[Rfam]
Nucleotides: 077
Stems, first nucleotide, its partner, number of pairs: 001077006
Number, partner (000 for none) and nucleotide at each position: 001077c002076a003075u004074c005073u006072c007000a008000a009000u010000g011000a012000u013000g014000u015000u016000g017000g018000a019000u020000a021000u022000u023000a024000u025000u026000c027000a028000u029000g030000u031000u032000a033000a034000a035000a036000g037000u038000a039000g040000c041000c042000u043000g044000a045000u046000u047000a048000a049000a050000u051000u052000g053000a054000u055000g056000a057000u058000a059000a060000u061000u062000u063000c064000a065000u066000u067000u068000c069000u070000g071000a072006g073005a074004g075003a076002u077001g